[Rfam]
RNA: Glycine riboswitch aptamer
Nucleotides: 101
Stems, first nucleotide, its partner, number of pairs: 006096008020043003045080003048076002052074003059067001
Number, partner (000 for none) and nucleotide at each position: 001000c002000g003000a004000a005000c006096c007095c008094g009093a010092g011091c012090g013089g014000g015000a016000g017000a018000g019000u020043c021042c022041c023000a024000g025000c026000g027000g028000a029000g030000c031000a032000g033000c034000a035000c036000g037000c038000g039000c040000c041022g042021g043020g044000c045080g046079c047078c048076g049075a050000a051000g052074g053073a054072g055000c056000a057000a058000a059067c060000c061000c062000u063000u064000c065000c066000c067059g068000g069000a070000a071000u072054c073053u074052c075049u076048c077000a078047g079046g080045c081000a082000c083000c084000c085000a086000g087000g088000a089013c090012c091011g092010c093009u094008c095007g096006g097000g098000g099000a100000a101000g